[Rfam]
RNA sequence: UGCCCAGCAACUCCUAUCCCUACCUCCUCGUGGUACUGGUAACCAACCCCGGUGGGAACUUUGGUCGUAUGCUGACAGGGUAGG
Numbered sequence: 001u002g003c004c005c006a007g008c009a010a011c012u013c014c015u016a017u018c019c020c021u022a023c024c025u026c027c028u029c030g031u032g033g034u035a036c037u038g039g040u041a042a043c044c045a046a047c048c049c050c051g052g053u054g055g056g057a058a059c060u061u062u063g064g065u066c067g068u069a070u071g072c073u074g075a076c077a078g079g080g081u082a083g084g
Base pairs, nucleotide, nucleotide: 013084014083015082016081017080018079019078022034023033024032040071041070044067046065047064048063
A member of the RNA family "drz-agam-1 ribozyme" from Aedes aegypti, 84 nucleotides long. Rfam links the family to the GO term catalytic activity. The literature on the family includes a 2009 paper in Science by Webb et al., "Widespread occurrence of self-cleaving ribozymes". The family's consensus secondary structure is taken from published work. The organism belongs to Stegomyia, within Eukaryota.